The record is a 72-nucleotide RNA sequence from Branchiostoma floridae, which matches "mir-135 microRNA precursor family" in Rfam. Rfam links the family to the GO terms gene silencing by miRNA and RISC complex. NCBI's taxonomy places the organism under Eukaryota, Metazoa, Deuterostomia, Chordata, Branchiostoma.

[Rfam]
RNA sequence: CCGUGUCCAAUGGCUUUCAUCCUUUGUGAAUGUCUGAGCACAGUUCACACUGAUGGGGGUUAUUGGACAAGA
Numbered sequence: 001c002c003g004u005g006u007c008c009a010a011u012g013g014c015u016u017u018c019a020u021c022c023u024u025u026g027u028g029a030a031u032g033u034c035u036g037a038g039c040a041c042a043g044u045u046c047a048c049a050c051u052g053a054u055g056g057g058g059g060u061u062a063u064u065g066g067a068c069a070a071g072a
Stems, first nucleotide, its partner, number of pairs: 002071001004069018025049005